[Rfam]
RNA sequence: GGGGUCGACUGGUUUUGACAGCAAGUCGAAUUGAACAGUAAGCAGGUCGAGAACUGGAGUAAUUCUCGUAAAUAAAAGGCUUCAAACAUUUUACACGGCGAAGGAAACUACGCUCUUGCUGCAUAAUCUGAAUCAUAGUAAGAUUAGCCUCGUCCUACAAGGUAGGAAAGCAGGAUUCUCCUCAAAGGCUUUGGUUUAUAGCAUUUGAUACAGGGGAAUCGUAAAGAUAAACCUAGAUUACCGUUUGUUUCGUACGGUUUUCGAAAAUUAAGAAACUAAGUGUUUUGUGGUUGUUUCUGACCUAGCUCAACAUCGAAAAUUCAAUCAGAAAAUAAGCCUGUAGAAAGCUCUUUAGUUGCUUGUUUGGACCCGAGUUCGACUCUCGGCGACUCCACAA
Number, nucleotide and partner (000 for none) at each position: 001g393002g392003g391004g390005u389006c388007g387008a000009c000010u000011g000012g000013u000014u000015u000016u000017g000018a000019c366020a365021g363022c362023a361024a360025g359026u358027c000028g000029a000030a356031u355032u354033g353034a352035a351036c000037a349038g348039u347040a000041a000042g000043c340044a339045g338046g337047u336048c068049g067050a066051g065052a064053a000054c000055u084056g083057g082058a081059g080060u079061a000062a000063u000064u052065c051066u050067c049068g048069u000070a000071a000072a000073u000074a000075a000076a000077a000078g000079g060080c059081u058082u057083c056084a055085a000086a000087c000088a000089u000090u000091u000092u000093a000094c000095a000096c000097g000098g000099c000100g000101a000102a000103g000104g000105a000106a000107a000108c000109u000110a000111c000112g000113c000114u143115c142116u141117u140118g139119c138120u137121g136122c000123a000124u000125a000126a000127u000128c000129u000130g000131a000132a000133u000134c000135a000136u121137a120138g119139u118140a117141a116142g115143a114144u000145u000146a000147g000148c000149c000150u000151c000152g000153u000154c000155c000156u000157a000158c000159a000160a000161g000162g000163u000164a000165g000166g000167a000168a000169a000170g000171c000172a000173g000174g000175a000176u218177u217178c216179u215180c214181c213182u208183c207184a206185a205186a000187g000188g202189c201190u200191u000192u000193g000194g000195u230196u229197u000198a000199u226200a190201g189202c188203a000204u000205u185206u184207g183208a182209u000210a000211c000212a000213g181214g180215g179216g178217a177218a176219u000220c000221g000222u000223a000224a000225a000226g199227a000228u000229a196230a195231a000232c000233c000234u000235a000236g262237a261238u000239u000240a258241c257242c256243g000244u000245u000246u000247g276248u275249u274250u273251c272252g000253u000254a000255c000256g242257g241258u240259u000260u000261u237262c236263g000264a000265a000266a000267a000268u000269u000270a000271a000272g251273a250274a249275a248276c247277u000278a000279a000280g313281u312282g311283u310284u309285u000286u000287g306288u305289g302290g301291u300292u000293g000294u331295u330296u329297c000298u000299g325300a291301c290302c289303u000304a000305g288306c287307u000308c000309a284310a283311c282312a281313u280314c000315g000316a000317a000318a000319a000320u000321u000322c000323a000324a000325u299326c000327a000328g000329a296330a295331a294332a000333u000334a000335a000336g047337c046338c045339u044340g043341u000342a000343g000344a000345a000346a000347g039348c038349u037350c000351u035352u034353u033354a032355g031356u030357u000358g026359c025360u024361u023362g022363u021364u000365u020366g019367g000368a000369c000370c386371c385372g384373a383374g382375u000376u000377c000378g000379a000380c000381u000382c374383u373384c372385g371386g370387c007388g006389a005390c004391u003392c002393c001394a000395c000396a000397a000

A member of the RNA family "transfer-messenger RNA" from Flavobacterium branchiophilum, 397 nucleotides long.
Gene Ontology term of the family: RNA catabolic process.
The source organism's lineage runs through Bacteria, Bacteroidota, Flavobacteriales, Flavobacteriaceae and Flavobacterium.
The family is grouped with related families in Rfam's "tRNA clan".
The family's RNA type in Rfam is non-coding RNA gene.
Rfam's curators write: Bacterial tmRNA, also known as 10Sa RNA or SsrA, is named for its dual tRNA and mRNA-like properties.